[Rfam]
RNA sequence: GUGUUUUUCAUGGUAUUAGAUUUAAGGUUAAAACAAAAAGAUUGGUUGUCGUGAGACAACCUCUUUUUUUUGU
Numbered sequence: 001g002u003g004u005u006u007u008u009c010a011u012g013g014u015a016u017u018a019g020a021u022u023u024a025a026g027g028u029u030a031a032a033a034c035a036a037a038a039a040g041a042u043u044g045g046u047u048g049u050c051g052u053g054a055g056a057c058a059a060c061c062u063c064u065u066u067u068u069u070u071u072g073u
Stems, first nucleotide, its partner, number of pairs: 044061007
Dot-bracket structure: ...........................................(((((((....)))))))............